[Rfam]
RNA sequence: CGACCUCAGUGAACAUUCAACGCUGUCGGUGAGUUUGGAAGUAUAAAUGAAACCAUUGACCGUUGACUGUACCCUGCGGCCG
Numbered sequence: 001c002g003a004c005c006u007c008a009g010u011g012a013a014c015a016u017u018c019a020a021c022g023c024u025g026u027c028g029g030u031g032a033g034u035u036u037g038g039a040a041g042u043a044u045a046a047a048u049g050a051a052a053c054c055a056u057u058g059a060c061c062g063u064u065g066a067c068u069g070u071a072c073c074c075u076g077c078g079g080c081c082g
Stems, first nucleotide, its partner, number of pairs: 001082002004079002007076002014069002017066006025060007033053004
A member of the RNA family "mir-181 microRNA precursor family" from Scyliorhinus torazame, 82 nucleotides long. The literature on the family includes a 2003 paper in RNA by Lagos-Quintana et al., "New microRNAs from mouse and human". Gene Ontology terms of the family: miRNA-mediated post-transcriptional gene silencing and RISC complex. It scores 77 bits against the family's covariance model. The base pairs follow the family's consensus structure, which was predicted with PFOLD.